[Rfam]
RNA: FMN riboswitch aptamer (RFN element)
RNA sequence: CAAUGUUCUCAGGGCGGGGUGAAAGUCCCCACCGGCGGUAAAGGCACUUUCUGGUUGCCCAAGCCCGCGAGCGCUUUCCGGUUAGCCGGAAGGGUCAGCAGAUCCGGUGUGAUUCCGGAGCCGACGGUAUAGUCCGGAUGGAAGAGAACGAGC
Numbered sequence: 001c002a003a004u005g006u007u008c009u010c011a012g013g014g015c016g017g018g019g020u021g022a023a024a025g026u027c028c029c030c031a032c033c034g035g036c037g038g039u040a041a042a043g044g045c046a047c048u049u050u051c052u053g054g055u056u057g058c059c060c061a062a063g064c065c066c067g068c069g070a071g072c073g074c075u076u077u078c079c080g081g082u083u084a085g086c087c088g089g090a091a092g093g094g095u096c097a098g099c100a101g102a103u104c105c106g107g108u109g110u111g112a113u114u115c116c117g118g119a120g121c122c123g124a125c126g127g128u129a130u131a132g133u134c135c136g137g138a139u140g141g142a143a144g145a146g147a148a149c150g151a152g153c
Stems, first nucleotide, its partner, number of pairs: 004150007017029003031133002033123002035068004063121002071099002103119005125136003